[Rfam]
RNA sequence: CAUCCCGAUGAUGAUGAUAUGCAUUGUUAAAAGUAGUGACUGAUCGAUCGAUUGCUUGACGAUAAAUACACAAUACUGAGGGAUG
Numbered sequence: 001c002a003u004c005c006c007g008a009u010g011a012u013g014a015u016g017a018u019a020u021g022c023a024u025u026g027u028u029a030a031a032a033g034u035a036g037u038g039a040c041u042g043a044u045c046g047a048u049c050g051a052u053u054g055c056u057u058g059a060c061g062a063u064a065a066a067u068a069c070a071c072a073a074u075a076c077u078g079a080g081g082g083a084u085g
Base pairs, nucleotide, nucleotide: 001085002084003083004082005081006080
Dot-bracket structure: ((((((.........................................................................))))))
This 85-nucleotide sequence from Hibiscus trionum belongs to the Rfam family "Small nucleolar RNA R21". Lineage of the source: Eukaryota > Mesangiospermae > Pentapetalae > malvids > Hibiscus. For this family Rfam cites "Identification of 66 box C/D snoRNAs in Arabidopsis thaliana: extensive gene duplications generated multiple isoforms predicting new ribosomal RNA 2'-O-methylation sites" (Barneche et al., J Mol Biol, 2001). Gene Ontology terms of the family: RNA processing and nucleolus. The base pairs follow the family's consensus structure, which was predicted with PFOLD. Rfam 15.1 lists 472 matches to the family in 146 species.